The record is a 70-nucleotide RNA sequence from Sonneratia alba, which matches "Plastid-psbM 3UTR RNA" in Rfam. The family's RNA type in Rfam is cis-regulatory element. Rfam's curators put it in the seed alignment. About the family: Plastid psbM is a non-coding RNA (ncRNA) recognised in plastids. It was found in the three prime untranslated region (3UTR) of psbM gene, its 3UTR location suggests a role in transcript maturation. On this family, see Richter et al., Plant Commun 2023: "Retrograde signaling in plants: A critical review focusing on the GUN pathway and beyond".
RNA sequence: AGCUAGUAUGGUAGAAAGAAAUAUAUGAAUCUUUCUACCAUACUAGCUAUUAUUGUAAUGUAACAAGUUG
Number, nucleotide and partner (000 for none) at each position: 001a000002g047003c046004u045005a044006g043007u042008a041009u040010g039011g038012u037013a036014g035015a034016a033017a032018g031019a030020a000021a000022u000023a000024u000025a000026u000027g000028a000029a000030u019031c018032u017033u016034u015035c014036u013037a012038c011039c010040a009041u008042a007043c006044u005045a004046g003047c002048u000049a000050u000051u000052a000053u000054u000055g000056u000057a000058a000059u000060g000061u000062a000063a000064c000065a000066a000067g000068u000069u000070g000
Notes:
The family has 237 seed sequences and 627 matches in Rfam 15.1.